RNA sequence: AAGGAGCAAGAAACCCUUUCUUGUUUUAUCAAAAAAGGGUUUCUUGCUCCUUAUAUU
Numbered sequence: 001a002a003g004g005a006g007c008a009a010g011a012a013a014c015c016c017u018u019u020c021u022u023g024u025u026u027u028a029u030c031a032a033a034a035a036a037g038g039g040u041u042u043c044u045u046g047c048u049c050c051u052u053a054u055a056u057u
Stems, first nucleotide, its partner, number of pairs: 001052016019036001021032003
Shown here is a 57-nucleotide RNA sequence, a member of the family "Plastid-psbA-2 3UTR RNA".
On this family, see Richter et al., Plant Commun 2023: "Retrograde signaling in plants: A critical review focusing on the GUN pathway and beyond".
It is one of the family's seed sequences.
The family's RNA type in Rfam is cis-regulatory element.